[Rfam]
RNA sequence: CAGAUACUUUUUGGGGUAAGGGCUUCCUGGAUACUAGCUUAAGGAACAGCAAGCCCAGACCGCAAAAAGACCCAA
Numbered sequence: 001c002a003g004a005u006a007c008u009u010u011u012u013g014g015g016g017u018a019a020g021g022g023c024u025u026c027c028u029g030g031a032u033a034c035u036a037g038c039u040u041a042a043g044g045a046a047c048a049g050c051a052a053g054c055c056c057a058g059a060c061c062g063c064a065a066a067a068a069g070a071c072c073c074a075a
Stems, first nucleotide, its partner, number of pairs: 007069007015061003020056004025051001027049002